[Rfam]
RNA sequence: AGCCCAGAUGAUGAGGGUCAUGCGUUGAGGUCACUUUGAUUGGAUGUCAGGAUAUGGAAGGGGCAGCAAAAUUGAAUUCAACAAAACAACUACUUUAAGACUUAACAGAGAUUUAUGGGGAAAACAAAAGUUAUGGCGCACGUCAGUGGCUGAAGCCAAUCAUU
Dot-bracket structure: .(((((..(((((.(.(....(...(....(((.(((...............................))).)))........)..).....(((((.(((((....)))..)).)))))....(..........)).).))))).))).....))........
Rfam assigns this 164-nucleotide RNA sequence from Drosophila gunungcola to the family "small Cajal body-specific RNA Dm46E3". Its family is annotated with Cajal body, nucleolus and RNA processing in the Gene Ontology. The literature on the family includes a 2009 paper in Gene by Tortoriello et al., "A novel Drosophila antisense scaRNA with a predicted guide function". Rfam 15.1 lists 5 matches to the family in 5 species. Lineage of the source: Eukaryota > Pancrustacea > Panorpida > Cyclorrhapha > elegans subgroup (in: flies).